RNA sequence: GGAGCAGGCCGCCUUAUCGUUCCGACAUCUAUCGGAGAGGAAAGUCCGGACACCAAAGGGCAGUGUAGUGGGUAACGCCCACCGGUCGUGAGAUCAGGACCAGUGCAACAGAAAGGAUGUACAGGUAAUGCUGUAGUGAAAUCAGGUAAACUCUAUGCGGUGCAAUGCCAUGUAUACCGGUAUUUAAGGAUCGCCCGUCCGUUGCCGGAGGGUAGGCAGCUAAAAAUCAUUGGCAACUUUGAUUUCAGAUAAAUGAUAAGGAUCCCGGUCAAUUAUCGGGAGACAGAAUCCGGCUUAUAGGCCUGCUUUUUUU
Dot-bracket structure: ((((((((((((((((((.((((((......))))))....[[[.[[[[[((((...[[[[.((((((((((.....)))))(((((....)))).)((...((((.......................................))..)))))))))))))...((((.......(((((......((((.]]]]))))...)))))......))))......(((((..(....)..)))))..........)))))))...........................]]]]]]]].).))))))))))....
Numbered sequence: 001g002g003a004g005c006a007g008g009c010c011g012c013c014u015u016a017u018c019g020u021u022c023c024g025a026c027a028u029c030u031a032u033c034g035g036a037g038a039g040g041a042a043a044g045u046c047c048g049g050a051c052a053c054c055a056a057a058g059g060g061c062a063g064u065g066u067a068g069u070g071g072g073u074a075a076c077g078c079c080c081a082c083c084g085g086u087c088g089u090g091a092g093a094u095c096a097g098g099a100c101c102a103g104u105g106c107a108a109c110a111g112a113a114a115g116g117a118u119g120u121a122c123a124g125g126u127a128a129u130g131c132u133g134u135a136g137u138g139a140a141a142u143c144a145g146g147u148a149a150a151c152u153c154u155a156u157g158c159g160g161u162g163c164a165a166u167g168c169c170a171u172g173u174a175u176a177c178c179g180g181u182a183u184u185u186a187a188g189g190a191u192c193g194c195c196c197g198u199c200c201g202u203u204g205c206c207g208g209a210g211g212g213u214a215g216g217c218a219g220c221u222a223a224a225a226a227u228c229a230u231u232g233g234c235a236a237c238u239u240u241g242a243u244u245u246c247a248g249a250u251a252a253a254u255g256a257u258a259a260g261g262a263u264c265c266c267g268g269u270c271a272a273u274u275a276u277c278g279g280g281a282g283a284c285a286g287a288a289u290c291c292g293g294c295u296u297a298u299a300g301g302c303c304u305g306c307u308u309u310u311u312u313u
Stems, first nucleotide, its partner, number of pairs: 001309010011298001012261007020037006042296003046293005051162004058196004063158005068082005083097001084095004098153002103151002105147002166218004177208005188200004225244005232237001